[Rfam]
RNA sequence: ACGGACGUCUGGGAAGGCCAAGAUAGCGUCGGAAGAGAAGGCACUAUCUCCCGACUCAAGCGUUCCAGCACGGUUCCCGGCACCCACGCGGAGCAUGCCGCGAUAAUAGCAGAAGUGUUGCGGGCCUGCGUAAUUGCGAAAAGCGAACAGACAUAACGUCCCCUUGGGUGGGGAUGUCACCGAAGCGCAUCGCGAGACCGCCGAGGCCAACCCACGCAGCCCACCUGGCACGCUUGGUAACCAGGAAACCGUGUUAGCGGGCGGCGAGCUGAAGCAAUUCGGAUCGCCGCCCGCUUCGCUGC
Numbered sequence: 001a002c003g004g005a006c007g008u009c010u011g012g013g014a015a016g017g018c019c020a021a022g023a024u025a026g027c028g029u030c031g032g033a034a035g036a037g038a039a040g041g042c043a044c045u046a047u048c049u050c051c052c053g054a055c056u057c058a059a060g061c062g063u064u065c066c067a068g069c070a071c072g073g074u075u076c077c078c079g080g081c082a083c084c085c086a087c088g089c090g091g092a093g094c095a096u097g098c099c100g101c102g103a104u105a106a107u108a109g110c111a112g113a114a115g116u117g118u119u120g121c122g123g124g125c126c127u128g129c130g131u132a133a134u135u136g137c138g139a140a141a142a143g144c145g146a147a148c149a150g151a152c153a154u155a156a157c158g159u160c161c162c163c164u165u166g167g168g169u170g171g172g173g174a175u176g177u178c179a180c181c182g183a184a185g186c187g188c189a190u191c192g193c194g195a196g197a198c199c200g201c202c203g204a205g206g207c208c209a210a211c212c213c214a215c216g217c218a219g220c221c222c223a224c225c226u227g228g229c230a231c232g233c234u235u236g237g238u239a240a241c242c243a244g245g246a247a248a249c250c251g252u253g254u255u256a257g258c259g260g261g262c263g264g265c266g267a268g269c270u271g272a273a274g275c276a277a278u279u280c281g282g283a284u285c286g287c288c289g290c291c292c293g294c295u296u297c298g299c300u301g302c
Stems, first nucleotide, its partner, number of pairs: 003065002006062003010058003016052002021049002025045002028042003067255008077244001079242002084237003088233003093229002096111003117220006123208005128201003134195006143188003148182001150180001157176007257294011269282003
The record is a 302-nucleotide RNA sequence from Mycolicibacterium sarraceniae, which matches "Mycobacterium smegmatis small RNA 1" in Rfam. Rfam's curators write: Mycobacterium smegmatis small RNA 1 is highly expressed during stationary phase of growth. Its family is annotated with RNA polymerase binding in the Gene Ontology. The match comes from Rfam's covariance-model search (242 bits). Lineage of the source: Bacteria > Bacillati > Actinomycetes > Mycobacterium > Mycobacterium (subgen. Mycolicibacterium).